[Rfam]
The family of this 99-nucleotide RNA sequence from Curtobacterium sp. MCBD17_032 is "mraW RNA". It scores 55 bits against the family's covariance model. The base pairs follow the family's consensus structure, which is taken from published work. The family's RNA type in Rfam is cis-regulatory element. NCBI's taxonomy places the organism under Bacteria, Bacillati, Actinomycetes, Micrococcales, Curtobacterium.

RNA sequence: UCUGAUCCGCGGAUCGGGACUCCCAGCCGUGAAGCCCUGACACACCUUCCCCGGUGUCAGGUCGCAUGGAUGGGGAUCCGGACCCGCGGCCCAGGAGAG
Number, nucleotide and partner (000 for none) at each position: 001u000002c000003u000004g000005a000006u000007c000008c000009g000010c086011g085012g084013a000014u082015c081016g000017g000018g078019a077020c000021u075022c074023c073024c072025a071026g000027c069028c068029g067030u066031g065032a000033a000034g063035c000036c061037c060038u059039g058040a057041c056042a055043c054044a000045c000046c000047u000048u000049c000050c000051c000052c000053g000054g043055u042056g041057u040058c039059a038060g037061g036062u000063c034064g000065c031066a030067u029068g028069g027070a000071u025072g024073g023074g022075g021076a000077u019078c018079c000080g000081g015082a014083c000084c012085c011086g010087c000088g000089g000090c000091c000092c000093a000094g000095g000096a000097g000098a000099g000